[Rfam]
Nucleotides: 083
Stems, first nucleotide, its partner, number of pairs: 002082005008076001010074005017067005024060002028056006
Number, partner (000 for none) and nucleotide at each position: 001000a002082g003081g004080c005079a006078a007000a008076a009000c010074u011073u012072g013071g014070g015000c016000a017067a018066g019065a020064c021063u022000u023000g024060g025059g026000c027000a028056a029055a030054a031053c032052u033051u034000g035000g036000a037000a038000u039000g040000a041000g042000g043000c044000u045000u046000u047000a048000c049000c050000a051033a052032a053031g054030u055029u056028u057000a058000a059025c060024c061000c062000a063021a064020g065019u066018u067017u068000c069000a070014c071013c072012c073011a074010a075000c076008u077000c078006u079005u080004g081003c082002c083000a